[Rfam]
RNA: Small nucleolar RNA SNORD26
Organism: Ophiophagus hannah
RNA sequence: CUACAAUGAAGAGAUUCUGAACUCUCUCUUUCUGAUGCUUCAGUGGAGAAUCGAAAGCAGUCUGAGUAGC
Number, nucleotide and partner (000 for none) at each position: 001c069002u068003a067004c066005a000006a000007u000008g000009a000010a000011g000012a000013g000014a000015u000016u000017c000018u000019g000020a000021a000022c000023u000024c000025u000026c000027u000028c000029u000030u000031u000032c000033u000034g000035a000036u000037g000038c000039u000040u000041c000042a000043g000044u000045g000046g000047a000048g000049a000050a000051u000052c000053g000054a000055a000056a000057g000058c000059a000060g000061u000062c000063u000064g000065a000066g004067u003068a002069g001070c000